[Rfam]
RNA sequence: UCUUCAUUCCACGUGCUCUUUCUCCGGUUAGAGUGACGAGAGAGCACGCAAAAUGAAGAGA
Numbered sequence: 001u002c003u004u005c006a007u008u009c010c011a012c013g014u015g016c017u018c019u020u021u022c023u024c025c026g027g028u029u030a031g032a033g034u035g036a037c038g039a040g041a042g043a044g045c046a047c048g049c050a051a052a053a054u055g056a057a058g059a060g061a
Stems, first nucleotide, its partner, number of pairs: 001059007012048006019041004
The record is a 61-nucleotide RNA from Pristionchus pacificus, which matches "mir-8364 microRNA precursor family" in Rfam. Its family is annotated with RISC complex and miRNA-mediated post-transcriptional gene silencing in the Gene Ontology.